[Rfam]
Nucleotides: 091
Stems, first nucleotide, its partner, number of pairs: 003050006021038006
Number, partner (000 for none) and nucleotide at each position: 001000u002000u003050c004049c005048c006047c007046g008045a009000g010000g011000a012000g013000c014000g015000u016000u017000g018000c019000g020000a021038c022037g023036g024035c025034g026033u027000g028000c029000g030000a031000u032000c033026a034025c035024g036023c037022u038021g039000c040000c041000a042000g043000g044000c045008u046007c047006g048005g049004g050003g051000c052000c053000a054000c055000g056000c057000c058000a059000c060000a061000c062000a063000u064000g065000u066000g067000g068000c069000g070000c071000u072000g073000c074000c075000a076000a077000c078000g079000a080000c081000g082000c083000u084000c085000a086000c087000c088000c089000c090000c091000g